[Rfam]
RNA sequence: AAUUGUGGUGGUUUUCUUUCUGGCACAUUUGUUAAGUUUUCAGAUGGGCCUAACUCUGCCACAUACAUUAUAUCGGAGCUGGCAAAGGCUUGAUGACAAAGAGAUUGCUCUUAAGCCUUUUCUGCGUCAGAGGUUGGCUCCCACAUGU
Dot-bracket structure: ....(((((((..........(((.((((((.........)))))).))).....)))))))............(((((((((....))).................((((.................))))...)))))).......
RNA: Small nucleolar RNA SNORA12